[Rfam]
The record is a 107-nucleotide RNA sequence from Mesobacillus subterraneus, which matches "TPP riboswitch aptamer (THI element)" in Rfam. The match comes from Rfam's covariance-model search (70 bits). Taxonomically the source falls in Mesobacillus (Bacteria, Bacillota, Caryophanales, Bacillaceae). A reference for the family is Winkler et al. (2002), "Thiamine derivatives bind messenger RNAs directly to regulate bacterial gene expression", Nature.
RNA sequence: AAUAACCACAAGGGGAGCUGCCAUGUGUAGCUGAGAGUGAGCGCCCGAGUUCUUACCCUUUGAACCUGUUAGGUAAUGCUAGCGAAGGAAUGUGGAUGCGAUAGGAA
Numbered sequence: 001a002a003u004a005a006c007c008a009c010a011a012g013g014g015g016a017g018c019u020g021c022c023a024u025g026u027g028u029a030g031c032u033g034a035g036a037g038u039g040a041g042c043g044c045c046c047g048a049g050u051u052c053u054u055a056c057c058c059u060u061u062g063a064a065c066c067u068g069u070u071a072g073g074u075a076a077u078g079c080u081a082g083c084g085a086a087g088g089a090a091u092g093u094g095g096a097u098g099c100g101a102u103a104g105g106a107a
Base pairs, nucleotide, nucleotide: 006095007094008093009092010091011059012058013057014056016053017031018030019029020028021027039052040051041050042049065088066087067086069082070081071080072079